The family of this 163-nucleotide sequence from Octodon degus is "U1 spliceosomal RNA". Gene Ontology terms of the family: pre-mRNA 5'-splice site binding, mRNA 5'-splice site recognition and U1 snRNP. The family's RNA type in Rfam is spliceosomal small nuclear RNA. Rfam describes the family as follows. U1 is a small nuclear RNA (snRNA) component of the spliceosome (involved in pre-mRNA splicing). Its 5' end forms complementary base pairs with the 5' splice junction, thus defining the 5' donor site of an intron. There are significant differences in sequence and secondary structure between metazoan and yeast U1 snRNAs, the latter being much longer (568 nucleotides as compared to 164 nucleotides in human). Nevertheless, secondary structure predictions suggest that all U1 snRNAs share a 'common core' consisting of helices I, II, the proximal region of III, and IV. This family does not contain the larger yeast sequences. A reference for the family is Zwieb (1997), "The uRNA database", Nucleic Acids Res. Taxonomically the source falls in Octodon (Eukaryota, Metazoa, Deuterostomia, Glires).
RNA sequence: GUACUUACCCGGCAGGGGAGACACCAUGGUCACAAAGGUGGUUUUCCCAGGGCGAGGCUCAUCCUCUGUACUCUGGUUGUGCUCACCCCUGUGAUUUCCCCAGUGCAGGAAACUUGACCCCAUAAUUUGUGGUCGUGGGGAACUGUGUUUGCGCUUUCCCCUG
Numbered sequence: 001g002u003a004c005u006u007a008c009c010c011g012g013c014a015g016g017g018g019a020g021a022c023a024c025c026a027u028g029g030u031c032a033c034a035a036a037g038g039u040g041g042u043u044u045u046c047c048c049a050g051g052g053c054g055a056g057g058c059u060c061a062u063c064c065u066c067u068g069u070a071c072u073c074u075g076g077u078u079g080u081g082c083u084c085a086c087c088c089c090u091g092u093g094a095u096u097u098c099c100c101c102a103g104u105g106c107a108g109g110a111a112a113c114u115u116g117a118c119c120c121c122a123u124a125a126u127u128u129g130u131g132g133u134c135g136u137g138g139g140g141a142a143c144u145g146u147g148u149u150u151g152c153g154c155u156u157u158c159c160c161c162u163g
Base pairs, nucleotide, nucleotide: 012121015118016048017047018046019045020044021043023042024041025040026039027038049090050089051088052087054086056083057082058081060079061078063076064075092116093115094114095112096111097110099108137161138160139159140158142157145154146153147152
A search with the family's covariance model found it, with a score of 117 bits.